This 337-nucleotide RNA sequence from Mesoplasma florum belongs to the Rfam family "Bacterial RNase P class B".
By type it is a ribozyme.
It is one of the family's seed sequences.
Rfam links the family to the GO terms dimeric ribonuclease P complex, ribonuclease P activity and tRNA processing.
Lineage of the source: Bacteria > Bacillati > Mycoplasmatota > Mollicutes > Mesoplasma florum.
For this family Rfam cites "The Ribonuclease P Database" (Brown, Nucleic Acids Res, 1999).
[Rfam]
RNA sequence: UUUUAUGGUCAAUCGCUGCAUUUUUAUUAAUGUAGAGGAAACUCCACGCUUGCACAAUCUGAGAUGGUUGUAGUGAUUAUGCUAGACGAAAAAAUAAGUCUAGGCAAUACGCAAGUAUUGACGGCAUAACUAACCUAAGGCUUUUGGCUAUGGAGAUGUUAUGAAGUGCCACAGAGACGAGUAUAGGGAAACCUUGAAAUGGAACGCGGUAAACCCCAUAAGUAAGAAACUUAAAUUUUGGUAAAGGAACUUGGCGAACAGAAAUGAAUGUAAACCAGGAGGAUUAUAUCCUAGAUAGAUGAUUGACACCGAAAGGUACAAAACGUGGGUUAUAGUA
Numbered sequence: 001u002u003u004u005a006u007g008g009u010c011a012a013u014c015g016c017u018g019c020a021u022u023u024u025u026a027u028u029a030a031u032g033u034a035g036a037g038g039a040a041a042c043u044c045c046a047c048g049c050u051u052g053c054a055c056a057a058u059c060u061g062a063g064a065u066g067g068u069u070g071u072a073g074u075g076a077u078u079a080u081g082c083u084a085g086a087c088g089a090a091a092a093a094a095u096a097a098g099u100c101u102a103g104g105c106a107a108u109a110c111g112c113a114a115g116u117a118u119u120g121a122c123g124g125c126a127u128a129a130c131u132a133a134c135c136u137a138a139g140g141c142u143u144u145u146g147g148c149u150a151u152g153g154a155g156a157u158g159u160u161a162u163g164a165a166g167u168g169c170c171a172c173a174g175a176g177a178c179g180a181g182u183a184u185a186g187g188g189a190a191a192c193c194u195u196g197a198a199a200u201g202g203a204a205c206g207c208g209g210u211a212a213a214c215c216c217c218a219u220a221a222g223u224a225a226g227a228a229a230c231u232u233a234a235a236u237u238u239u240g241g242u243a244a245a246g247g248a249a250c251u252u253g254g255c256g257a258a259c260a261g262a263a264a265u266g267a268a269u270g271u272a273a274a275c276c277a278g279g280a281g282g283a284u285u286a287u288a289u290c291c292u293a294g295a296u297a298g299a300u301g302a303u304u305g306a307c308a309c310c311g312a313a314a315g316g317u318a319c320a321a322a323a324c325g326u327g328g329g330u331u332a333u334a335g336u337a
Stems, first nucleotide, its partner, number of pairs: 004337003007333001008307007016035006040331003044328005049226005054071006077221005082103006104122001105120006123216002126162004134153002139149003166214002168210003185194003230246003250279005280292005309316002
Dot-bracket structure: ...(((((((((((.((((((........))))))....[[[.[[[[[(((((((((((......)))))).....(((((((((((..........))))))(((((((....)))))).)((.((((....((...(((.....)))..)).....))))...(((((..............(((....))).............)))..))))))))))))))...(((...........)))...(((((....................)))))(((((...)))))........))))))).((....)).......]]]]]]]].).)))